[Rfam]
RNA sequence: GCACAUGUAUUCAUCUCAAUCCACAUGUGUUGAAGUGGGAUUGGAGUGGAAUUAAACUAAGUUUCAUUCCAUUCCACUUCAAUACAUAUGGAUUGAGGUGAAUACACAU
Numbered sequence: 001g002c003a004c005a006u007g008u009a010u011u012c013a014u015c016u017c018a019a020u021c022c023a024c025a026u027g028u029g030u031u032g033a034a035g036u037g038g039g040a041u042u043g044g045a046g047u048g049g050a051a052u053u054a055a056a057c058u059a060a061g062u063u064u065c066a067u068u069c070c071a072u073u074c075c076a077c078u079u080c081a082a083u084a085c086a087u088a089u090g091g092a093u094u095g096a097g098g099u100g101a102a103u104a105c106a107c108a109u
Base pairs, nucleotide, nucleotide: 006106007105008104009103010102011101012100013099014098016096017095018094019093020092021091022090023089025087026086027085028084029083030082031081032080035077036076037075038074039073040072042071043070044069046067047066048065
This 109-nucleotide sequence from Miscanthus lutarioriparius belongs to the Rfam family "MIR5565 microRNA precursor family". The base pairs follow the family's consensus structure, which was predicted with RNAalifold.